[Rfam]
RNA sequence: GGGAUUGUGCAGUGGCGGUGUUGUCGCCAGUGAGGUUUAUCCAAGGUGUGAUUAUUGCCGAUUGAAAACUCUUCCCACUACCCCGCCAUGAUGGCUUGAAGUAUAGUCGACAUUGGCAGUUUCUCACAGUCUUUAUGGAGA
Numbered sequence: 001g002g003g004a005u006u007g008u009g010c011a012g013u014g015g016c017g018g019u020g021u022u023g024u025c026g027c028c029a030g031u032g033a034g035g036u037u038u039a040u041c042c043a044a045g046g047u048g049u050g051a052u053u054a055u056u057g058c059c060g061a062u063u064g065a066a067a068a069c070u071c072u073u074c075c076c077a078c079u080a081c082c083c084c085g086c087c088a089u090g091a092u093g094g095c096u097u098g099a100a101g102u103a104u105a106g107u108c109g110a111c112a113u114u115g116g117c118a119g120u121u122u123c124u125c126a127c128a129g130u131c132u133u134u135a136u137g138g139a140g141a
Base pairs, nucleotide, nucleotide: 020052021051022050023049024048026047027046028045034042035041085117086116087115088113089112090111092109093108094107095106096105130141131140132139133138
The family of this 141-nucleotide RNA from Piliocolobus tephrosceles is "U4 spliceosomal RNA".
The match comes from Rfam's covariance-model search (77 bits).
About the family: U4 small nuclear RNA (U4 snRNA) is a component of the major U2-dependent spliceosome.